[Rfam]
RNA sequence: ACAAGUUGUGAGGCCAUAACAGAAGCAAGCAUAGUCCUGUCAGAUUCCAGUGAAUCUGCAAAUUCUGCU
Numbered sequence: 001a002c003a004a005g006u007u008g009u010g011a012g013g014c015c016a017u018a019a020c021a022g023a024a025g026c027a028a029g030c031a032u033a034g035u036c037c038u039g040u041c042a043g044a045u046u047c048c049a050g051u052g053a054a055u056c057u058g059c060a061a062a063u064u065c066u067g068c069u
Base pairs, nucleotide, nucleotide: 010037012036013035014034018069020067021066022065023064024063025032041058042057043056044055045054046053047052
RNA: Mammalian CPEB3 ribozyme